The family of this 59-nucleotide sequence from Leifsonia xyli is "msiK RNA". The sequence is in the family's curated seed alignment. The family's consensus secondary structure is taken from published work. Lineage of the source: Bacteria > Microbacteriaceae > Leifsonia > Leifsonia xyli > Leifsonia xyli subsp. xyli. Rfam classes the family as a cis-regulatory element.
RNA sequence: CCACAUCAUCCAUCACUACGGAUCGUCCGGCACGUACCUGCCGGUGAAGGAGAACACGA
Dot-bracket structure: ........(((.(((...........((((((......))))))))).)))........